This 105-nucleotide RNA sequence from Clostridiales bacterium CHKCI006 belongs to the Rfam family "SAM riboswitch aptamer (S box leader)". It scores 61 bits against the family's covariance model. Rfam's curators write: The SAM riboswitch is found upstream of a number of genes which code for proteins involved in methionine or cysteine biosynthesis in Gram-positive bacteria.
[Rfam]
RNA sequence: CUCUUAUUCAGAACCACCAGAUUUGGGAUCGAUGACGUGGUGGCAACCCUUUGUAAGAAAGAAGGUGCCUUACCCAAGCAAGAAGCAAUUCUUGAACAAUAAGAG
Numbered sequence: 001c002u003c004u005u006a007u008u009c010a011g012a013a014c015c016a017c018c019a020g021a022u023u024u025g026g027g028a029u030c031g032a033u034g035a036c037g038u039g040g041u042g043g044c045a046a047c048c049c050u051u052u053g054u055a056a057g058a059a060a061g062a063a064g065g066u067g068c069c070u071u072a073c074c075c076a077a078g079c080a081a082g083a084a085g086c087a088a089u090u091c092u093u094g095a096a097c098a099a100u101a102a103g104a105g
Stems, first nucleotide, its partner, number of pairs: 001105008013041005020030003024078001027074001042069004047065002049061004079094006